Rfam assigns this 91-nucleotide RNA from Esox lucius to the family "mir-146 microRNA precursor family". It scores 50 bits against the family's covariance model. For this family Rfam cites "Identification of tissue-specific microRNAs from mouse" (Lagos-Quintana et al., Curr Biol, 2002).
[Rfam]
RNA sequence: AAAGGUGUUGUGCCCUGAGAACUGAAUUCCAUAGAUGGUGAUUAAAGGAUGGUUGUCUAUGGGAUUAGUUCUUCUGGCAAGACACUGCUCA
Number, nucleotide and partner (000 for none) at each position: 001a000002a000003a000004g000005g000006u000007g000008u082009u081010g000011u079012g078013c077014c000015c000016u000017g000018a072019g071020a070021a069022c068023u067024g066025a065026a000027u000028u000029c000030c000031a000032u000033a058034g057035a056036u055037g000038g000039u000040g000041a000042u000043u000044a000045a000046a000047g000048g000049a000050u000051g000052g000053u000054u000055g036056u035057c034058u033059a000060u000061g000062g000063g000064a000065u025066u024067a023068g022069u021070u020071c019072u018073u000074c000075u000076g000077g013078c012079a011080a000081g009082a008083c000084a000085c000086u000087g000088c000089u000090c000091a000